[Rfam]
Shown here is a 417-nucleotide RNA sequence from Gorillibacterium sp., a member of the family "Bacterial RNase P class A". The organism belongs to Gorillibacterium, within Bacteria. The base pairs follow the family's consensus structure, which is taken from published work. It is annotated as a ribozyme.

RNA sequence: GAAGUUUGACUGACAAUCGCCGGUGGUUAUACGCCACGGGAGGAAAGUCCGGGCUCCACAGGGCAGGAUGCUGGAUAACGUCCAGUCAACGCGAGUUGAAGGAAAGUGCCACAGAAAUGGACCGCCGAUGGCCUGCUUCUCUAGGGAAGCAGUGCACAGGCAAGGGUGGAACCGUGGUGUAAGAGACCACGAGAGACUAUGGUGACAUAGCCUCUGGUAAACCCCAUCUGGAGCAAGACCUAAGAGGACGUGGGUGCAGGCAACUGCACCACCUUUAGCCCGAAGGGCGUCCGGGUUGGUCGCUGAAGCCAUGCAGCAAUGUAUGGCGUAGAUAGAUGAUUGUCGCUUCAAUGGCGGGAGGGGAGACCCGUUACUACCGCCCGAAGUACAGAACCCGGCUUACGGAAAGCUUUCGAC
Numbered sequence: 001g002a003a004g005u006u007u008g009a010c011u012g013a014c015a016a017u018c019g020c021c022g023g024u025g026g027u028u029a030u031a032c033g034c035c036a037c038g039g040g041a042g043g044a045a046a047g048u049c050c051g052g053g054c055u056c057c058a059c060a061g062g063g064c065a066g067g068a069u070g071c072u073g074g075a076u077a078a079c080g081u082c083c084a085g086u087c088a089a090c091g092c093g094a095g096u097u098g099a100a101g102g103a104a105a106g107u108g109c110c111a112c113a114g115a116a117a118u119g120g121a122c123c124g125c126c127g128a129u130g131g132c133c134u135g136c137u138u139c140u141c142u143a144g145g146g147a148a149g150c151a152g153u154g155c156a157c158a159g160g161c162a163a164g165g166g167u168g169g170a171a172c173c174g175u176g177g178u179g180u181a182a183g184a185g186a187c188c189a190c191g192a193g194a195g196a197c198u199a200u201g202g203u204g205a206c207a208u209a210g211c212c213u214c215u216g217g218u219a220a221a222c223c224c225c226a227u228c229u230g231g232a233g234c235a236a237g238a239c240c241u242a243a244g245a246g247g248a249c250g251u252g253g254g255u256g257c258a259g260g261c262a263a264c265u266g267c268a269c270c271a272c273c274u275u276u277a278g279c280c281c282g283a284a285g286g287g288c289g290u291c292c293g294g295g296u297u298g299g300u301c302g303c304u305g306a307a308g309c310c311a312u313g314c315a316g317c318a319a320u321g322u323a324u325g326g327c328g329u330a331g332a333u334a335g336a337u338g339a340u341u342g343u344c345g346c347u348u349c350a351a352u353g354g355c356g357g358g359a360g361g362g363g364a365g366a367c368c369c370g371u372u373a374c375u376a377c378c379g380c381c382c383g384a385a386g387u388a389c390a391g392a393a394c395c396c397g398g399c400u401u402a403c404g405g406a407a408a409g410c411u412u413u414c415g416a417c
Stems, first nucleotide, its partner, number of pairs: 001413007010404001012344007020040002023037005045401003049398005054233004061281004066229005071085005086100001087098004101224002106222002108218003122165002124161003129156002173191006193214003197210005237301004246292006272286005308327008